Shown here is a 93-nucleotide RNA sequence from Streptomyces solincola, a member of the family "che1 RNA". Lineage of the source: Bacteria > Actinomycetota > Kitasatosporales > Streptomycetaceae > Streptomyces. Pairs were carried over by alignment from the consensus structure, which is taken from published work. Rfam classes the family as a small RNA. It scores 79 bits against the family's covariance model.
[Rfam]
RNA sequence: CGGACAGGGGGGUUCCUGCCCAGCCGGCAGGGCCUGUCCACCCCAGGGCCGCGUCGACGCGCGGCAGUGGUUGUCGCUCGGGGGUGAUCGCCG
Numbered sequence: 001c002g003g004a005c006a007g008g009g010g011g012g013u014u015c016c017u018g019c020c021c022a023g024c025c026g027g028c029a030g031g032g033c034c035u036g037u038c039c040a041c042c043c044c045a046g047g048g049c050c051g052c053g054u055c056g057a058c059g060c061g062c063g064g065c066a067g068u069g070g071u072u073g074u075c076g077c078u079c080g081g082g083g084g085u086g087a088u089c090g091c092c093g
Base pairs, nucleotide, nucleotide: 002039003038004037005036006035007034008033014032015031016030017029018028019027020026048065049064050063051062052061053060054059